The record is a 154-nucleotide RNA from Amborella trichopoda, which matches "MIR8565 microRNA precursor family" in Rfam.

[Rfam]
RNA sequence: CCCACACUUAUGUGUGUAGGAUCCCAAAAGAUCACCAUUAAAUUUGGCACAGAUCUCUAGAAAAAGCAUUAUAUGGGUGUGGGAGUUGAUUUUUUUAGAGAUCUGUGUCAAAUUUAAUAGUGAUCCUUUGGAGUCCUACACACAUGGGUGUGGG
Numbered sequence: 001c002c003c004a005c006a007c008u009u010a011u012g013u014g015u016g017u018a019g020g021a022u023c024c025c026a027a028a029a030g031a032u033c034a035c036c037a038u039u040a041a042a043u044u045u046g047g048c049a050c051a052g053a054u055c056u057c058u059a060g061a062a063a064a065a066g067c068a069u070u071a072u073a074u075g076g077g078u079g080u081g082g083g084a085g086u087u088g089a090u091u092u093u094u095u096u097a098g099a100g101a102u103c104u105g106u107g108u109c110a111a112a113u114u115u116a117a118u119a120g121u122g123a124u125c126c127u128u129u130g131g132a133g134u135c136c137u138a139c140a141c142a143c144a145u146g147g148g149u150g151u152g153g154g
Stems, first nucleotide, its partner, number of pairs: 002153012015140008024131005030125003034121002037118029067088002069082005
Taxonomically the source falls in Amborella (Eukaryota, Streptophyta, Streptophytina, Tracheophyta).